Background: TPP riboswitch aptamer (THI element): a 105-nucleotide RNA from Pseudolactococcus reticulitermitis.

[Rfam]
RNA sequence: ACCCAUCACAAGGGGAGCCGUUUUUGGCUGAGAUUGAGCGUUUGCUCUGGACUCUUUGAACCUGAACUCGUUAGCACGAGCGGAGGGAUGUGAUCGAUAGACUUU
Numbered sequence: 001a002c003c004c005a006u007c008a009c010a011a012g013g014g015g016a017g018c019c020g021u022u023u024u025u026g027g028c029u030g031a032g033a034u035u036g037a038g039c040g041u042u043u044g045c046u047c048u049g050g051a052c053u054c055u056u057u058g059a060a061c062c063u064g065a066a067c068u069c070g071u072u073a074g075c076a077c078g079a080g081c082g083g084a085g086g087g088a089u090g091u092g093a094u095c096g097a098u099a100g101a102c103u104u105u
Stems, first nucleotide, its partner, number of pairs: 006093005011055004017028004036047004061086003067080004
About the family: Vitamin B(1) in its active form thiamin pyrophosphate (TPP) is an essential coenzyme that is synthesised by coupling of pyrimidine and thiazole moieties in bacteria. The previously detected thiamin-regulatory element, thi box was extended, resulting in a new, highly conserved RNA secondary structure, the THI element, which is widely distributed in eubacteria and also occurs in some archaea. Analysis of operon structures identified a large number of new candidate thiamin-regulated genes, mostly transporters, in various prokaryotic organisms.